[Rfam]
RNA sequence: GAGUUACUUUCAGUGGCGAGGUUAACUGAAUAAGGAAGCCGUAGAGAAAUCGAGUCUGAAUAGGGCGAGAGUCGCUGGGAGUAGACCCGAAACCGGGCGAUCUAGCCAUGUGCAGGAUGAAGGUUGGGUAACACCAACUGGAGGUCCGAACCGGGUAAUGUUGAAAAAUUAUCGGAUGACGUGUGGCUAGGAGUGAAAGGCUAAUCAAGCCCGGAGAUAGCUGGUU
Number, nucleotide and partner (000 for none) at each position: 001g000002a000003g000004u000005u083006a082007c081008u080009u079010u078011c077012a076013g075014u074015g073016g072017c071018g000019a000020g040021g039022u038023u037024a000025a000026c034027u033028g000029a000030a000031u000032a000033a027034g026035g000036a000037a023038g022039c021040c020041g000042u000043a000044g051045a050046g000047a000048a000049a000050u045051c044052g000053a000054g066055u065056c064057u063058g000059a000060a000061u000062a000063g057064g056065g055066c054067g000068a000069g000070a000071g017072u016073c015074g014075c013076u012077g011078g010079g009080a008081g007082u006083a005084g000085a000086c224087c223088c000089g221090a000091a000092a000093c214094c213095g212096g211097g210098c209099g000100a000101u000102c190103u189104a188105g187106c186107c185108a184109u183110g182111u181112g180113c178114a000115g147116g146117a145118u144119g000120a000121a000122g139123g138124u137125u136126g135127g134128g000129u000130a000131a000132c000133a000134c127135c126136a125137a124138c123139u122140g000141g000142a000143g000144g118145u117146c116147c115148g000149a000150a000151c175152c174153g173154g000155g172156u171157a170158a169159u168160g000161u000162u000163g000164a000165a000166a000167a000168a159169u158170u157171a156172u155173c153174g152175g151176a000177u000178g113179a000180c112181g111182u110183g109184u108185g107186g106187c105188u104189a103190g102191g000192a202193g201194u200195g000196a000197a000198a000199g000200g194201c193202u192203a000204a000205u000206c000207a000208a000209g098210c097211c096212c095213g094214g093215a000216g000217a000218u000219a000220g000221c089222u000223g087224g086225u000226u000
Bacterial large subunit ribosomal RNA: a 226-nucleotide part of an RNA from Legionella rubrilucens. The match comes from Rfam's covariance-model search (2844 bits). The source organism's lineage runs through Bacteria, Pseudomonadati, Pseudomonadota, Legionellales and Legionella. Gene Ontology terms of the family: ribosome and structural constituent of ribosome.